[Rfam]
RNA: THF (Tetrahydrofolate) riboswitch aptamer
Organism: Erysipelothrix sp. HDW6C
RNA sequence: AGCAAAGUAAAUAACAUGUGUUAAGUGCUGAAGGAUGGGAAGUAGCCUUUGGACGAAACGAAAGUGCAGUGUGUUAUUGCCUCCGUUGCG
Numbered sequence: 001a002g003c004a005a006a007g008u009a010a011a012u013a014a015c016a017u018g019u020g021u022u023a024a025g026u027g028c029u030g031a032a033g034g035a036u037g038g039g040a041a042g043u044a045g046c047c048u049u050u051g052g053a054c055g056a057a058a059c060g061a062a063a064g065u066g067c068a069g070u071g072u073g074u075u076a077u078u079g080c081c082u083c084c085g086u087u088g089c090g
Stems, first nucleotide, its partner, number of pairs: 002089004010078009019068003025054002028052007038084003042080001058065002